[Rfam]
RNA: Mammalian CPEB3 ribozyme
Organism: Alligator sinensis
RNA sequence: AGAGGUUGCAAGGUCGAGGCCAUAACAGAAGUGCUUAUGGCACGGUUCUGUCAGAUGUCAACAAAUCUACAAAUUCUGCU
Number, nucleotide and partner (000 for none) at each position: 001a000002g000003a000004g000005g000006u000007u000008g000009c000010a000011a000012g000013g048014u000015c000016g000017a000018g047019g046020c045021c044022a000023u000024a080025a000026c078027a077028g076029a075030a074031g043032u042033g041034c000035u000036u000037a000038u000039g000040g000041c033042a032043c031044g021045g020046u019047u018048c013049u000050g000051u000052c000053a068054g067055a066056u065057g000058u063059c000060a000061a000062c000063a058064a000065a056066u055067c054068u053069a000070c000071a000072a000073a000074u030075u029076c028077u027078g026079c000080u024